[Rfam]
The family of this 194-nucleotide sequence from Rhizobium sp. AC44/96 is "Rhizobiales sRNA Atu_C9". The match comes from Rfam's covariance-model search (140 bits). Pairs were carried over by alignment from the consensus structure, which was predicted with WAR. A reference for the family is Wilms et al. (2012), "Deep sequencing uncovers numerous small RNAs on all four replicons of the plant pathogen Agrobacterium tumefaciens", RNA Biol.

RNA sequence: UGUUAACGCGAGGAGACAGACAUGGGACUCACACGAUCCUUGAAUGUCCUUUUGAUCGGUGCGGCGUUUUUAUUUGUGUUGUCGAUGCUUUUCAUCUGACCUGCCUGCCGCCCGAAAUGGACUAUGCCGAGACUCCUGAGUAGCGAACAUCUCUGCGGAAUUAAAAAAGCGCAUGCCUUGAGAGCAUGCGCUUU
Number, nucleotide and partner (000 for none) at each position: 001u000002g000003u000004u000005a000006a000007c000008g000009c000010g000011a000012g000013g000014a000015g048016a047017c046018a045019g000020a000021c000022a000023u000024g040025g039026g038027a037028c000029u000030c000031a000032c000033a000034c000035g000036a000037u027038c026039c025040u024041u000042g000043a000044a000045u018046g017047u016048c015049c000050u000051u000052u000053u000054g000055a000056u000057c000058g000059g000060u000061g000062c000063g000064g000065c000066g000067u000068u000069u000070u000071u000072a000073u000074u000075u000076g000077u000078g000079u000080u000081g000082u000083c000084g000085a000086u000087g000088c000089u000090u000091u000092u000093c000094a000095u000096c000097u000098g000099a000100c000101c000102u000103g000104c000105c000106u000107g000108c000109c000110g000111c000112c000113c000114g000115a000116a000117a000118u000119g000120g000121a000122c000123u000124a000125u000126g000127c000128c000129g000130a000131g000132a000133c000134u000135c000136c000137u000138g000139a000140g000141u000142a000143g000144c000145g000146a000147a000148c000149a000150u000151c000152u000153c000154u000155g000156c000157g000158g000159a000160a000161u000162u000163a000164a000165a000166a194167a193168a192169g191170c190171g189172c188173a187174u186175g185176c000177c184178u183179u000180g000181a000182g000183a178184g177185c175186a174187u173188g172189c171190g170191c169192u168193u167194u166